[Rfam]
RNA sequence: CAAGGGAAGGUCUGUGGUUGAAAGUCCAUGCCAGUCGCAGGCAAAAGGACCCACGUAAGAUAGCAAAAAAAACAGCUAUUGAUCAUGGUGCGGCUUAGAUGUAAGACCUGCCGGUAAAACCGAGAGGGGUAGUAGUGAAGGUAAUCCCGUAGCGAACCCUCCAGCAGGCGAGUGUGGGGUAAAAAACCAGGUCAGCUUCAUAUG
Numbered sequence: 001c002a003a004g005g006g007a008a009g010g011u012c013u014g015u016g017g018u019u020g021a022a023a024g025u026c027c028a029u030g031c032c033a034g035u036c037g038c039a040g041g042c043a044a045a046a047g048g049a050c051c052c053a054c055g056u057a058a059g060a061u062a063g064c065a066a067a068a069a070a071a072a073c074a075g076c077u078a079u080u081g082a083u084c085a086u087g088g089u090g091c092g093g094c095u096u097a098g099a100u101g102u103a104a105g106a107c108c109u110g111c112c113g114g115u116a117a118a119a120c121c122g123a124g125a126g127g128g129g130u131a132g133u134a135g136u137g138a139a140g141g142u143a144a145u146c147c148c149g150u151a152g153c154g155a156a157c158c159c160u161c162c163a164g165c166a167g168g169c170g171a172g173u174g175u176g177g178g179g180u181a182a183a184a185a186a187c188c189a190g191g192u193c194a195g196c197u198u199c200a201u202a203u204g
Base pairs, nucleotide, nucleotide: 001204002203004201006199007198008197009196012195013194014193015189016188017187018186019185028175029174030173031041033095034094035093036092037091038090039089050088051087055083058080059079062077063076064075086182107168108167109166110165111164112122113121114120126161127160128159129158135153136152141146
RNA: raiA RNA